[Rfam]
RNA: CRISPR RNA direct repeat element
RNA sequence: AUUUAAAUACAUUUUAUGUUAAUGUUCUAC
Numbered sequence: 001a002u003u004u005a006a007a008u009a010c011a012u013u014u015u016a017u018g019u020u021a022a023u024g025u026u027c028u029a030c
Base pairs, nucleotide, nucleotide: 009019010018011017012016